[Rfam]
Annotation
The family of this 128-nucleotide RNA sequence from Cricetulus griseus is "Small nucleolar RNA SNORA40".
RNA sequence: AGCACUUGCAUAUGUUUUUGUUCAGCUGGUGGACAAAGGCACAUUAGACAGGUGCAAAAAUAAAUCCUCUUUUGCAACCCAGAACUCAUUGUCAAGUAUGAGUUUUGAUACAUAUAAGAAGGAAUAGA
Numbered sequence: 001a002g003c004a005c006u007u008g009c010a011u012a013u014g015u016u017u018u019u020g021u022u023c024a025g026c027u028g029g030u031g032g033a034c035a036a037a038g039g040c041a042c043a044u045u046a047g048a049c050a051g052g053u054g055c056a057a058a059a060a061u062a063a064a065u066c067c068u069c070u071u072u073u074g075c076a077a078c079c080c081a082g083a084a085c086u087c088a089u090u091g092u093c094a095a096g097u098a099u100g101a102g103u104u105u106u107g108a109u110a111c112a113u114a115u116a117a118g119a120a121g122g123a124a125u126a127g128a
Base pairs, nucleotide, nucleotide: 002055003054004053005052006051007050008049011046014040015039016038017037018036019035020034021033026031064125065124067122068121070119071118072117073116074115080107081106082105083104084103085102086101087100088099089098
The base pairs follow the family's consensus structure, which was predicted with RNAalifold. About the family: The snoRNA ACA 40 belongs to the H/ACA family of snoRNAs and guides the pseudouridylation of 28S rRNA subunit at position U4565. NB This family has a high threshold value to exclude a large number of closely related sequences that do not appear to have conserved H and ACA boxes, and may be pseudogenes. It is annotated as an H/ACA-box small nucleolar RNA. On this family, see Ofengand and Bakin, J Mol Biol 1997: "Mapping to nucleotide resolution of pseudouridine residues in large subunit ribosomal RNAs from representative eukaryotes, prokaryotes, archaebacteria, mitochondria and chloroplasts".